[Rfam]
Shown here is a 178-nucleotide sequence from Flavonifractor sp. An306, a member of the family "Lysine riboswitch aptamer".
Its family is annotated with lysine biosynthetic process in the Gene Ontology.
NCBI's taxonomy places the organism under Bacteria, Clostridia, Eubacteriales, Oscillospiraceae, Flavonifractor.
The base pairs follow the family's consensus structure, which is taken from published work.
A reference for the family is Mandal et al. (2003), "Riboswitches Control Fundamental Biochemical Pathways in Bacillus subtilis and Other Bacteria", Cell.
RNA sequence: UGCAUGGAUAGAGGCGCGGAGCGCAAGGUAGCAGUGCAAUGACAAGGGCAGGCGAGCCCGAUGUGCAUUGUGAAUGUCCGCUCCGCCGAAGGGGGACGUGAAUCGUACAGCCCUCCCCCUGAGUCGUGGGCCCAGCGCUCACGGAUUGUCAUGAGUCACAUGAAGCGCUAUUUAUGUC
Numbered sequence: 001u002g003c004a005u006g007g008a009u010a011g012a013g014g015c016g017c018g019g020a021g022c023g024c025a026a027g028g029u030a031g032c033a034g035u036g037c038a039a040u041g042a043c044a045a046g047g048g049c050a051g052g053c054g055a056g057c058c059c060g061a062u063g064u065g066c067a068u069u070g071u072g073a074a075u076g077u078c079c080g081c082u083c084c085g086c087c088g089a090a091g092g093g094g095g096a097c098g099u100g101a102a103u104c105g106u107a108c109a110g111c112c113c114u115c116c117c118c119c120u121g122a123g124u125c126g127u128g129g130g131c132c133c134a135g136c137g138c139u140c141a142c143g144g145a146u147u148g149u150c151a152u153g154a155g156u157c158a159c160a161u162g163a164a165g166c167g168c169u170a171u172u173u174a175u176g177u178c
Stems, first nucleotide, its partner, number of pairs: 006173006016086008031071008090120007098112001121147002124144008149163005